RNA: Archaeal RNase P
Organism: Halorussus sp. MSC15.2
RNA sequence: GGCAGAGGGAGCCGAGUUCCCGCGGGGGCGUCGGCACUCGCCGGUGCCCGCGUGAGGAAAGUCCCCCCACCGUCCGGGCGGGCGACCGGACGCAAGUCCGGAGCGGGAGACCGCUGGCUCUGGAACAGAAACGAGACCGCUCUCCUCGACCGAUGAGGUGCGCGAACCCGAACCGAACGAAGGCACGCGCCGAGUAAAGGAACGGGGAGUUGACCCACCGAGGGACGUGCGGCGGACGAACCGCCGCGCGAGCGUGCUGGCGCUGCCAGUGCGCGGACGGGAGAGAACGGAUGGAACGGCGAAUCCUCGCCGGUGCAAGUCCGCGCGGAUUAGGUAGCCCGGACGACCGCGCGGACGCUCAGCCGAAUACUCGGAGGAACAGAAGGGGGCUUACUCCCCUCAGCC
Numbered sequence: 001g002g003c004a005g006a007g008g009g010a011g012c013c014g015a016g017u018u019c020c021c022g023c024g025g026g027g028g029c030g031u032c033g034g035c036a037c038u039c040g041c042c043g044g045u046g047c048c049c050g051c052g053u054g055a056g057g058a059a060a061g062u063c064c065c066c067c068c069a070c071c072g073u074c075c076g077g078g079c080g081g082g083c084g085a086c087c088g089g090a091c092g093c094a095a096g097u098c099c100g101g102a103g104c105g106g107g108a109g110a111c112c113g114c115u116g117g118c119u120c121u122g123g124a125a126c127a128g129a130a131a132c133g134a135g136a137c138c139g140c141u142c143u144c145c146u147c148g149a150c151c152g153a154u155g156a157g158g159u160g161c162g163c164g165a166a167c168c169c170g171a172a173c174c175g176a177a178c179g180a181a182g183g184c185a186c187g188c189g190c191c192g193a194g195u196a197a198a199g200g201a202a203c204g205g206g207g208a209g210u211u212g213a214c215c216c217a218c219c220g221a222g223g224g225a226c227g228u229g230c231g232g233c234g235g236a237c238g239a240a241c242c243g244c245c246g247c248g249c250g251a252g253c254g255u256g257c258u259g260g261c262g263c264u265g266c267c268a269g270u271g272c273g274c275g276g277a278c279g280g281g282a283g284a285g286a287a288c289g290g291a292u293g294g295a296a297c298g299g300c301g302a303a304u305c306c307u308c309g310c311c312g313g314u315g316c317a318a319g320u321c322c323g324c325g326c327g328g329a330u331u332a333g334g335u336a337g338c339c340c341g342g343a344c345g346a347c348c349g350c351g352c353g354g355a356c357g358c359u360c361a362g363c364c365g366a367a368u369a370c371u372c373g374g375a376g377g378a379a380c381a382g383a384a385g386g387g388g389g390c391u392u393a394c395u396c397c398c399c400u401c402a403g404c405c
Base pairs, nucleotide, nucleotide: 001405002404003403005401006400007399008398009397010395011394012374013373014372015371016370017369021054022053023052024051059392060391061390063389064388065387066386067385068315069314070313071312075342077340078339081311082310083309084308085307086101087100088099089098090097102115103114104113105112106111116306117305121302123300137290138289139288140285141284142283143282144281145280146279319356320355321354322353323352324351325350326349327348